A member of the RNA family "Small nucleolar RNA snR8" from Debaryomyces hansenii, 161 nucleotides long.
[Rfam]
RNA sequence: UUUUUCUUUGAUACGAAAGCUUCCUAUUCACUGCACCAUUCUUUAAUCAAUGAGUGACUGGAGGGGAAAAGGAAAGCGAGAAAGAAACAUCGAAUAACGUCCUCAUACUAAGUUUGCUUGUAUUUUGUAGCAUAUUUGGAUUCUGCGUUUUCGAAACAUGC
Numbered sequence: 001u002u003u004u005u006c007u008u009u010g011a012u013a014c015g016a017a018a019g020c021u022u023c024c025u026a027u028u029c030a031c032u033g034c035a036c037c038a039u040u041c042u043u044u045a046a047u048c049a050a051u052g053a054g055u056g057a058c059u060g061g062a063g064g065g066g067a068a069a070a071g072g073a074a075a076g077c078g079a080g081a082a083a084g085a086a087a088c089a090u091c092g093a094a095u096a097a098c099g100u101c102c103u104c105a106u107a108c109u110a111a112g113u114u115u116g117c118u119u120g121u122a123u124u125u126u127g128u129a130g131c132a133u134a135u136u137u138g139g140a141u142u143c144u145g146c147g148u149u150u151u152c153g154a155a156a157c158a159u160g161c
Stems, first nucleotide, its partner, number of pairs: 019077002022073002031063002034060002037056005091153003097148003108139003112135002115132004120128001

Rfam classes the family as an H/ACA-box small nucleolar RNA. The sequence is in the family's curated seed alignment.